[Rfam]
The record is an 87-nucleotide sequence from Gossypium harknessii, which matches "MIR7486 microRNA precursor family" in Rfam. NCBI's taxonomy places the organism under Eukaryota, Streptophytina, eudicotyledons, Malvales, Gossypium. Rfam 15.1 lists 10,132 matches to the family in 36 species.
RNA sequence: UACGUAAGCGCGCUUUGCUGAUGUGGACACAAAUCGCGCUUUCGUGGACGCAAUUUGUUGCCACGUUAGCAAAGUACGCUGAUGUGG
Numbered sequence: 001u002a003c004g005u006a007a008g009c010g011c012g013c014u015u016u017g018c019u020g021a022u023g024u025g026g027a028c029a030c031a032a033a034u035c036g037c038g039c040u041u042u043c044g045u046g047g048a049c050g051c052a053a054u055u056u057g058u059u060g061c062c063a064c065g066u067u068a069g070c071a072a073a074g075u076a077c078g079c080u081g082a083u084g085u086g087g
Base pairs, nucleotide, nucleotide: 001086002085003084004083005082007080008079009078010077012075013074014073015072016071017070018069019068020067021066023064024063025062026061029058030057031056032055033054034053036051037050038049040047041046